Rfam assigns this 140-nucleotide RNA sequence from Panicum miliaceum to the family "Small nucleolar RNA snoR136".
Rfam classes the family as an H/ACA-box small nucleolar RNA.
The family's consensus secondary structure was predicted with mfold.
The organism belongs to Panicum sect. Panicum, within Eukaryota.
Gene Ontology terms of the family: nucleolus and RNA processing.
[Rfam]
RNA sequence: CUGGCUUCUCUUGAUUUCGUUGUGCCUGUGAACCCGUUUGGUUCUUGGGCAGUGCCAAGAAUGUGAAGCAAAAGGGAUUGUUCCUCUCGCUAUCCGGCGCGGAAUUUUGUGAUGCGAUUGGACGUCGAGGAACUACAGUU
Numbered sequence: 001c002u003g004g005c006u007u008c009u010c011u012u013g014a015u016u017u018c019g020u021u022g023u024g025c026c027u028g029u030g031a032a033c034c035c036g037u038u039u040g041g042u043u044c045u046u047g048g049g050c051a052g053u054g055c056c057a058a059g060a061a062u063g064u065g066a067a068g069c070a071a072a073a074g075g076g077a078u079u080g081u082u083c084c085u086c087u088c089g090c091u092a093u094c095c096g097g098c099g100c101g102g103a104a105u106u107u108u109g110u111g112a113u114g115c116g117a118u119u120g121g122a123c124g125u126c127g128a129g130g131a132a133c134u135a136c137a138g139u140u
Stems, first nucleotide, its partner, number of pairs: 004069002008065001010063001012057002015054001023051006032042003080133007088124002093122005103110001